[Rfam]
The family of this 145-nucleotide sequence from Gossypium aridum is "MIR7502 microRNA precursor family". The source organism's lineage runs through Eukaryota, Magnoliopsida, Gunneridae, Malvaceae and Gossypium. A search with the family's covariance model found it, with a score of 95 bits.
RNA sequence: CUUUAAAACUUUUAUCCAUUUUCACUGUUCAAAACUAGUGUGACUGACAAAAUAACCAGAUAAUUACACAUGACGUGUCAUGUAUGUCUCAUGCUGAUGUAUAGAGACCAGUUUUUAACAGUAGAAAUGGAUUCAAUUUUUAAUA
Numbered sequence: 001c002u003u004u005a006a007a008a009c010u011u012u013u014a015u016c017c018a019u020u021u022u023c024a025c026u027g028u029u030c031a032a033a034a035c036u037a038g039u040g041u042g043a044c045u046g047a048c049a050a051a052a053u054a055a056c057c058a059g060a061u062a063a064u065u066a067c068a069c070a071u072g073a074c075g076u077g078u079c080a081u082g083u084a085u086g087u088c089u090c091a092u093g094c095u096g097a098u099g100u101a102u103a104g105a106g107a108c109c110a111g112u113u114u115u116u117a118a119c120a121g122u123a124g125a126a127a128u129g130g131a132u133u134c135a136a137u138u139u140u141u142a143a144u145a
Stems, first nucleotide, its partner, number of pairs: 003143006010136002014132003018128005024122003028118002031115003